This 205-nucleotide sequence from Miscanthus lutarioriparius belongs to the Rfam family "MIR6217 microRNA precursor family".
Lineage of the source: Eukaryota > Viridiplantae > Spermatophyta > Poales > Miscanthus.
It scores 131 bits against the family's covariance model.
The family has 2 seed sequences and 2,266 matches in Rfam 15.1.
Pairs were carried over by alignment from the consensus structure, which was predicted with RNAalifold.

RNA sequence: CAGCUACAAAAUAACUUAUUCUGUAGCCACUUUGAGUUAUGAUAAUUACUAUGUUAAUUUAUGAGAUUAUAGUAACUCCUUACUAAGUGGUUUACUAUAACGUUAUGGUUAAUAUCCCCAUGUGUUAUAGUAACCUAAUUAUCGUAAAUAUGUAUUGACAUUAUCGUAAAUGGAGGUGGCUACAAACAAACUUAUUUUGUAGCUG
Numbered sequence: 001c002a003g004c005u006a007c008a009a010a011a012u013a014a015c016u017u018a019u020u021c022u023g024u025a026g027c028c029a030c031u032u033u034g035a036g037u038u039a040u041g042a043u044a045a046u047u048a049c050u051a052u053g054u055u056a057a058u059u060u061a062u063g064a065g066a067u068u069a070u071a072g073u074a075a076c077u078c079c080u081u082a083c084u085a086a087g088u089g090g091u092u093u094a095c096u097a098u099a100a101c102g103u104u105a106u107g108g109u110u111a112a113u114a115u116c117c118c119c120a121u122g123u124g125u126u127a128u129a130g131u132a133a134c135c136u137a138a139u140u141a142u143c144g145u146a147a148a149u150a151u152g153u154a155u156u157g158a159c160a161u162u163a164u165c166g167u168a169a170a171u172g173g174a175g176g177u178g179g180c181u182a183c184a185a186a187c188a189a190a191c192u193u194a195u196u197u198u199g200u201a202g203c204u205g
Base pairs, nucleotide, nucleotide: 001205002204003203004202005201006200007199008198009197010196011195012194013193014192016190017189020186022184023183024182025181026180027179028178029177030176031175032174033173037169038168039167040166041165042164043163044162045161046160065159067157069155070154071153072151073150074149080147081146082145083144087142088141089140090139091138092137093132094131095130096129097128098127099126100125101124102123103122107117108116